[Rfam]
RNA sequence: CCCUUAUCAAGAGUGGCGGAGGGAACGGCCCGAUGAAGCCACGGCAACCUGUUUUCACAAGGUGCCAAUUCCGACGGAAACGACAGAUGAGGA
Numbered sequence: 001c002c003c004u005u006a007u008c009a010a011g012a013g014u015g016g017c018g019g020a021g022g023g024a025a026c027g028g029c030c031c032g033a034u035g036a037a038g039c040c041a042c043g044g045c046a047a048c049c050u051g052u053u054u055u056c057a058c059a060a061g062g063u064g065c066c067a068a069u070u071c072c073g074a075c076g077g078a079a080a081c082g083a084c085a086g087a088u089g090a091g092g093a
Base pairs, nucleotide, nucleotide: 002092003091004090005089006088007087008086013042014041015040016039017038021031022030023029026073027072028071043066044065045064046063048062049061050059051058052057070085075082076081
Shown here is a 93-nucleotide RNA sequence from Dysosmobacter segnis, a member of the family "SAM riboswitch aptamer (S box leader)". NCBI's taxonomy places the organism under Bacteria, Bacillati, Bacillota, Eubacteriales, Dysosmobacter. The family has 457 seed sequences and 9,625 matches in Rfam 15.1.